[Rfam]
RNA sequence: UCCCGAAAUGGCAAACCCGUUGUGAAGCGGGGACGCAAAGCCGUGGAUCUUGCAAUUGAGGCAAGACAGCCUGGCUACCGAAA
Numbered sequence: 001u002c003c004c005g006a007a008a009u010g011g012c013a014a015a016c017c018c019g020u021u022g023u024g025a026a027g028c029g030g031g032g033a034c035g036c037a038a039a040g041c042c043g044u045g046g047a048u049c050u051u052g053c054a055a056u057u058g059a060g061g062c063a064a065g066a067c068a069g070c071c072u073g074g075c076u077a078c079c080g081a082a083a
Stems, first nucleotide, its partner, number of pairs: 001083001003080001011036002016031006034069001039076004045071002048066005